This 76-nucleotide sequence from Butyrivibrio proteoclasticus belongs to the Rfam family "c-di-GMP-I riboswitch aptamer". Taxonomically the source falls in Butyrivibrio proteoclasticus (Bacteria, Bacillota, Lachnospiraceae, Butyrivibrio).

[Rfam]
RNA sequence: UUUGAUAUCGGGCAAAGCAAGCGAAAGCUUGUGGCGCAAAGCUAUAGGGACUUUAACAUGUCAGCCAGUUGCAUCU
Numbered sequence: 001u002u003u004g005a006u007a008u009c010g011g012g013c014a015a016a017g018c019a020a021g022c023g024a025a026a027g028c029u030u031g032u033g034g035c036g037c038a039a040a041g042c043u044a045u046a047g048g049g050a051c052u053u054u055a056a057c058a059u060g061u062c063a064g065c066c067a068g069u070u071g072c073a074u075c076u
Stems, first nucleotide, its partner, number of pairs: 012037002017032006040070004047066002049062003